[Rfam]
Overview: Mammalian CPEB3 ribozyme: a 74-nucleotide RNA sequence from Crocodylus porosus. Lineage of the source: Eukaryota > Dipnotetrapodomorpha > Tetrapoda > Sauropsida > Crocodylus. The base pairs follow the family's consensus structure, which is taken from published work. The match comes from Rfam's covariance-model search (44 bits).
RNA sequence: GGAGAGUUUGAGGCUAUAGCAAAAGAGCUCAGGGCACAGCUAUGUCAGAUUCCAACAAAUCUGUGAAUUCUGCU
Numbered sequence: 001g002g003a004g005a006g007u008u009u010g011a012g013g014c015u016a017u018a019g020c021a022a023a024a025g026a027g028c029u030c031a032g033g034g035c036a037c038a039g040c041u042a043u044g045u046c047a048g049a050u051u052c053c054a055a056c057a058a059a060u061c062u063g064u065g066a067a068u069u070c071u072g073c074u
Stems, first nucleotide, its partner, number of pairs: 011041001013040003018074004023069002025037001027035001046063006